[Rfam]
RNA sequence: AGCACUACAUUUAAACCUAUGGAUGGGAAGUUUCCCCAUUCUUUGUUAUGCUGUAGUGCAAAACAAUUCUUGGCUUUCUUUGUUGCACAAUUGACUUGUGCCAUUCUGCUGUUGCUGUAUGGAGUUAAGGAAUAUGA
Numbered sequence: 001a002g003c004a005c006u007a008c009a010u011u012u013a014a015a016c017c018u019a020u021g022g023a024u025g026g027g028a029a030g031u032u033u034c035c036c037c038a039u040u041c042u043u044u045g046u047u048a049u050g051c052u053g054u055a056g057u058g059c060a061a062a063a064c065a066a067u068u069c070u071u072g073g074c075u076u077u078c079u080u081u082g083u084u085g086c087a088c089a090a091u092u093g094a095c096u097u098g099u100g101c102c103a104u105u106c107u108g109c110u111g112u113u114g115c116u117g118u119a120u121g122g123a124g125u126u127a128a129g130g131a132a133u134a135u136g137a
Base pairs, nucleotide, nucleotide: 002059003058004057005056006055007054008053009052014047015046016045021041022040023039024038025037026036027035067132068131069130070129071128072126073125074124075123076122077121081119082118085115086114087113088111089110091108093106094105
Small nucleolar RNA SNORA46: a 137-nucleotide RNA from Cebus imitator.
The family's consensus secondary structure was predicted with RNAfold.
From the family's description: ACA46 is a member of the H/ACA class of snoRNA that guide the sites of modification of uridines to pseudouridines.
The family has 22 seed sequences and 582 matches in Rfam 15.1.